[Rfam]
RNA sequence: GCCGGUCCUCGGUAGUGGCUUCCGGAUGUCGACGGCGUGCCGCCGCGACCCGGGUGCUUCGAUCGAAGACCGGC
Numbered sequence: 001g002c003c004g005g006u007c008c009u010c011g012g013u014a015g016u017g018g019c020u021u022c023c024g025g026a027u028g029u030c031g032a033c034g035g036c037g038u039g040c041c042g043c044c045g046c047g048a049c050c051c052g053g054g055u056g057c058u059u060c061g062a063u064c065g066a067a068g069a070c071c072g073g074c
Base pairs, nucleotide, nucleotide: 001074002073003072004071005070006069007068009066010065011064012063013062017058018057019056021054022053023052024051025050028049029048030047031046
A member of the RNA family "Actino-pnp RNA" from Sphaerisporangium rubeum, 74 nucleotides long.
It is annotated as a cis-regulatory element.
A search with the family's covariance model found it, with a score of 63 bits.
Taxonomically the source falls in Sphaerisporangium (Bacteria, Actinomycetota, Actinomycetes, Streptosporangiales).